[Rfam]
Overview
Shown here is a 76-nucleotide sequence from Sarcophilus harrisii, a member of the family "mir-202 microRNA precursor family". Taxonomically the source falls in Sarcophilus (Eukaryota, Opisthokonta, Chordata, Euteleostomi). The family has 23 seed sequences and 673 matches in Rfam 15.1. For this family Rfam cites "The developmental miRNA profiles of zebrafish as determined by small RNA cloning" (Chen et al., Genes Dev, 2005).

RNA sequence: UGGUUCCUUUUUCCUAUGCAUAUACUUCUUUGAGAAUAAAUUCUAAAGAGGCGUAGGGCAUGGGAAAAUGGGGCCA
Numbered sequence: 001u002g003g004u005u006c007c008u009u010u011u012u013c014c015u016a017u018g019c020a021u022a023u024a025c026u027u028c029u030u031u032g033a034g035a036a037u038a039a040a041u042u043c044u045a046a047a048g049a050g051g052c053g054u055a056g057g058g059c060a061u062g063g064g065a066a067a068a069u070g071g072g073g074c075c076a
Stems, first nucleotide, its partner, number of pairs: 010067010021055003025051008
Its family is annotated with RISC complex and miRNA-mediated post-transcriptional gene silencing in the Gene Ontology.